[Rfam]
RNA: Actinobacteria sRNA Ms_IGR-5
Organism: Streptomyces sp. R302
RNA sequence: ACACGCGAAAGGAGGUGAUCCGAAAAAAUGGUUUCUUUUCGGACUCGUGAGGUGACUGCGGGCUAAGGCCUGCCGUCGCACGAUGUGCACCUCGGCAGGCCAGCUGCCGAAACCCCAGCAGUCACCCGACCCGUGGGCCGCCGGUCAGUCCGGCCGGCUCCCGUCCGAACCUAGGCGGACGGGACCGAGGCCCACGGGUCGUCUGCG
Numbered sequence: 001a002c003a004c005g006c007g008a009a010a011g012g013a014g015g016u017g018a019u020c021c022g023a024a025a026a027a028a029u030g031g032u033u034u035c036u037u038u039u040c041g042g043a044c045u046c047g048u049g050a051g052g053u054g055a056c057u058g059c060g061g062g063c064u065a066a067g068g069c070c071u072g073c074c075g076u077c078g079c080a081c082g083a084u085g086u087g088c089a090c091c092u093c094g095g096c097a098g099g100c101c102a103g104c105u106g107c108c109g110a111a112a113c114c115c116c117a118g119c120a121g122u123c124a125c126c127c128g129a130c131c132c133g134u135g136g137g138c139c140g141c142c143g144g145u146c147a148g149u150c151c152g153g154c155c156g157g158c159u160c161c162c163g164u165c166c167g168a169a170c171c172u173a174g175g176c177g178g179a180c181g182g183g184a185c186c187g188a189g190g191c192c193c194a195c196g197g198g199u200c201g202u203c204u205g206c207g
Base pairs, nucleotide, nucleotide: 015059016058017057019055062108064106065105067101068100069099070098072096073095074094127201128200129199130198131197132196133195134194135193136192137191138190139189140158141157142156143155144154145153
Dot-bracket structure: ..............(((.(...................................).)))..(.((.((((.(((...................))).))))...)).)..................(((((((((((((((((((.......))))))..............................)))))))))))))......